Bacteriophage Diversity-Generating Retroelement RNA: a 134-nucleotide RNA sequence.
[Rfam]
RNA sequence: GCUCUGGCGCAAGCCAACCGCAGUGUCACCGGCGGCAAUGGUGGUCAGCCCGCCUACCCUGCUUCGGCAAACACAUUGCGCGGUCCGGUACAGCGGGGCGUAGGGAGCAUUGCUCUUCGAUACCCGCGACCGGC
Numbered sequence: 001g002c003u004c005u006g007g008c009g010c011a012a013g014c015c016a017a018c019c020g021c022a023g024u025g026u027c028a029c030c031g032g033c034g035g036c037a038a039u040g041g042u043g044g045u046c047a048g049c050c051c052g053c054c055u056a057c058c059c060u061g062c063u064u065c066g067g068c069a070a071a072c073a074c075a076u077u078g079c080g081c082g083g084u085c086c087g088g089u090a091c092a093g094c095g096g097g098g099c100g101u102a103g104g105g106a107g108c109a110u111u112g113c114u115c116u117u118c119g120a121u122a123c124c125c126g127c128g129a130c131c132g133g134c
Base pairs, nucleotide, nucleotide: 001033002032004031005028006027007026008025009024010023013021014020060069061068062067083134085133086132087131088130089129094126095125096124097123103118104117
Rfam's curators put it in the seed alignment. Pairs were carried over by alignment from the consensus structure, which is taken from published work.